Small nucleolar RNA SNORD22: a 126-nucleotide RNA sequence from Anas platyrhynchos. On this family, see Tycowski et al., Nature 1996: "A mammalian gene with introns instead of exons generating stable RNA products". The family's consensus secondary structure was predicted with PFOLD. Gene Ontology terms of the family: nucleolus and RNA processing. It scores 94 bits against the family's covariance model. By type it is a C/D-box small nucleolar RNA.

RNA sequence: CCCCGAUGAGGAAAACCUCACACGUCUUACUGCCCGUCUGGCGCCAGAACCUGCAAAGGUCGAACCCACUGGCGCCGGCGGCCGGAGAGGAGGACGGCUCAGUUCUGUGGGAACGGUCUGAGGGGG
Numbered sequence: 001c002c003c004c005g006a007u008g009a010g011g012a013a014a015a016c017c018u019c020a021c022a023c024g025u026c027u028u029a030c031u032g033c034c035c036g037u038c039u040g041g042c043g044c045c046a047g048a049a050c051c052u053g054c055a056a057a058g059g060u061c062g063a064a065c066c067c068a069c070u071g072g073c074g075c076c077g078g079c080g081g082c083c084g085g086a087g088a089g090g091a092g093g094a095c096g097g098c099u100c101a102g103u104u105c106u107g108u109g110g111g112a113a114c115g116g117u118c119u120g121a122g123g124g125g126g
Stems, first nucleotide, its partner, number of pairs: 001125004